[Rfam]
RNA sequence: UGUAUCUAUGAUGAUAAUCUGGCUCCCUCUUCUGAAGUCUCUGAGGACAACCGCCAUUCGUUACCCAAUUUCUGUCUGAGAUGCU
Number, nucleotide and partner (000 for none) at each position: 001u000002g084003u083004a082005u081006c080007u000008a000009u000010g000011a000012u000013g000014a000015u000016a000017a000018u000019c000020u000021g000022g000023c000024u000025c000026c000027c000028u000029c000030u000031u000032c000033u000034g000035a000036a000037g000038u000039c000040u000041c000042u000043g000044a000045g000046g000047a000048c000049a000050a000051c000052c000053g000054c000055c000056a000057u000058u000059c000060g000061u000062u000063a000064c000065c000066c000067a000068a000069u000070u000071u000072c000073u000074g000075u000076c000077u000078g000079a000080g006081a005082u004083g003084c002085u000
RNA: Small nucleolar RNA SNORD100
Organism: Anabarilius grahami